[Rfam]
Nucleotides: 144
Base pairs, nucleotide, nucleotide: 061106062105063104064103067101068100069099070098109123110122112121113120114119
Number, partner (000 for none) and nucleotide at each position: 001000u002000u003000c004000g005000u006000c007000c008000g009000c010000g011000u012000c013000g014000u015000g016000g017000a018000c019000g020000c021000c022000c023000c024000u025000g026000a027000c028000c029000a030000u031000a032000g033000g034000c035000c036000c037000c038000c039000g040000c041000c042000g043000c044000c045000g046000g047000u048000u049000a050000c051000c052000c053000u054000g055000a056000c057000g058000g059000c060000g061106u062105g063104c064103g065000c066000c067101c068100g069099c070098c071000c072000c073000g074000g075000g076000a077000c078000g079000g080000c081000c082000c083000c084000c085000c086000g087000c088000c089000g090000u091000g092000c093000c094000c095000g096000g097000a098070g099069g100068u101067g102000a103064c104063g105062c106061a107000a108000a109123g110122c111000c112121g113120a114119c115000a116000g117000c118000c119114g120113u121112c122110g123109c124000a125000u126000c127000u128000c129000a130000g131000g132000g133000a134000g135000c136000c137000c138000u139000u140000a141000c142000a143000u144000g
Rfam assigns this 144-nucleotide RNA from Streptomyces glaucescens to the family "Streptomyces-metH RNA". The match comes from Rfam's covariance-model search (86 bits). NCBI's taxonomy places the organism under Bacteria, Actinomycetota, Actinomycetes, Streptomycetaceae, Streptomyces. The family's consensus secondary structure is taken from published work.